The record is a 93-nucleotide RNA sequence from Lachnospiraceae bacterium 1_4_56FAA, which matches "Glycine riboswitch aptamer" in Rfam.
Taxonomically the source falls in Lachnospiraceae (Bacteria, Bacillati, Clostridia, Lachnospirales).
Its Rfam clan is "Glycine riboswitch clan".
[Rfam]
RNA sequence: GGAGAAUACUCUGGAAAAACUCAUGUAUGAGUACCGAAGGUGUAAGGUCCUGACGGACUGAAUCUCUCAGGUAAAGGAGACAGAGUGGUGAUA
Numbered sequence: 001g002g003a004g005a006a007u008a009c010u011c012u013g014g015a016a017a018a019a020c021u022c023a024u025g026u027a028u029g030a031g032u033a034c035c036g037a038a039g040g041u042g043u044a045a046g047g048u049c050c051u052g053a054c055g056g057a058c059u060g061a062a063u064c065u066c067u068c069a070g071g072u073a074a075a076g077g078a079g080a081c082a083g084a085g086u087g088g089u090g091a092u093a
Base pairs, nucleotide, nucleotide: 007087008086009085010084011083012082013081020031021030022029023028033072034071035070036068037067040066042064046059047058048057049056050055
It scores 53 bits against the family's covariance model.